sraA: a 94-nucleotide RNA sequence from Sodalis ligni. By type it is a small RNA. Pairs were carried over by alignment from the consensus structure, which was predicted with RNAalifold.

RNA sequence: AGGUAUCAGAGUAUAUGGGGGCAAUUUUUUUACAUUCAACGGGCAAGGUAAUGGAAAAACAAAUGGGGGAUAAAAUCCCCCACAUUAAUUACUU
Numbered sequence: 001a002g003g004u005a006u007c008a009g010a011g012u013a014u015a016u017g018g019g020g021g022c023a024a025u026u027u028u029u030u031u032a033c034a035u036u037c038a039a040c041g042g043g044c045a046a047g048g049u050a051a052u053g054g055a056a057a058a059a060c061a062a063a064u065g066g067g068g069g070a071u072a073a074a075a076u077c078c079c080c081c082a083c084a085u086u087a088a089u090u091a092c093u094u
Base pairs, nucleotide, nucleotide: 010036011035012034016032017031018030019029020028062085064082065081066080067079068078069077070076071075
Dot-bracket structure: .........(((...(((((.......))))).))).........................(.((((((((...))))))))..).........